The family of this 119-nucleotide RNA from Rhododendron williamsianum is "MIR408 microRNA precursor family". It scores 66 bits against the family's covariance model.
RNA sequence: UGUAAGAUUGAAGAGGAUAGACAGGGACGAGACAGAGCAUGAGAUGAGCCUUUAAUCCACAACAUUGAUGCUCUUCCCCUGCACUGCCUCUUCCCUGGCUCUCCUCUCUCUAUCUCUCU
Numbered sequence: 001u002g003u004a005a006g007a008u009u010g011a012a013g014a015g016g017a018u019a020g021a022c023a024g025g026g027a028c029g030a031g032a033c034a035g036a037g038c039a040u041g042a043g044a045u046g047a048g049c050c051u052u053u054a055a056u057c058c059a060c061a062a063c064a065u066u067g068a069u070g071c072u073c074u075u076c077c078c079c080u081g082c083a084c085u086g087c088c089u090c091u092u093c094c095c096u097g098g099c100u101c102u103c104c105u106c107u108c109u110c111u112a113u114c115u116c117u118c119u
Stems, first nucleotide, its partner, number of pairs: 017102001019100002022097006030089002033086003037082003041078001043077001046073002